Notes:
The record is a 69-nucleotide sequence from Streptomyces sp. DI166, which matches "ASpks TB sRNA" in Rfam. The match comes from Rfam's covariance-model search (71 bits).

Nucleotides: 069
Base pairs, nucleotide, nucleotide: 014026015025016024017023032059033058037054038053041050042049043048
Number, partner (000 for none) and nucleotide at each position: 001000c002000u003000u004000c005000a006000a007000c008000g009000a010000g011000c012000c013000c014026a015025g016024c017023c018000a019000c020000a021000g022000c023017g024016g025015c026014u027000g028000u029000u030000c031000g032059c033058g034000c035000u036000c037054c038053u039000g040000u041050c042049c043048g044000u045000a046000c047000g048043u049042g050041g051000c052000g053038a054037g055000g056000a057000g058033u059032g060000c061000c062000u063000g064000c065000g066000c067000c068000u069000c
NCBI's taxonomy places the organism under Bacteria, Bacillati, Actinomycetota, Kitasatosporales, Streptomyces.